RNA sequence: AUAUGCAAAGUUCUCCGAGCCAUAACGCCUAAAACAAUUGUCAUGGUAUUAUGGCCGUUUAGGGUUAAUCGGGAAACUGGUUAGCCUCCCCUUUGGAAAGGAGAGCAUUAUGCCGCCUG
Numbered sequence: 001a002u003a004u005g006c007a008a009a010g011u012u013c014u015c016c017g018a019g020c021c022a023u024a025a026c027g028c029c030u031a032a033a034a035c036a037a038u039u040g041u042c043a044u045g046g047u048a049u050u051a052u053g054g055c056c057g058u059u060u061a062g063g064g065u066u067a068a069u070c071g072g073g074a075a076a077c078u079g080g081u082u083a084g085c086c087u088c089c090c091c092u093u094u095g096g097a098a099a100g101g102a103g104a105g106c107a108u109u110a111u112g113c114c115g116c117c118u119g
Stems, first nucleotide, its partner, number of pairs: 004112001011105006019055007027047003034041002062087011088096002
Notes:
The record is a 119-nucleotide sequence from Desulforamulus ferrireducens, which matches "Molybdenum/Tungsten riboswitch aptamer (Moco RNA motif)" in Rfam. A search with the family's covariance model found it, with a score of 79 bits. Pairs were carried over by alignment from the consensus structure, which is taken from published work. Its family is annotated with tungstate binding, molybdenum ion binding and regulation of gene expression in the Gene Ontology. Taxonomically the source falls in Desulforamulus (Bacteria, Bacillati, Bacillota, Peptococcaceae).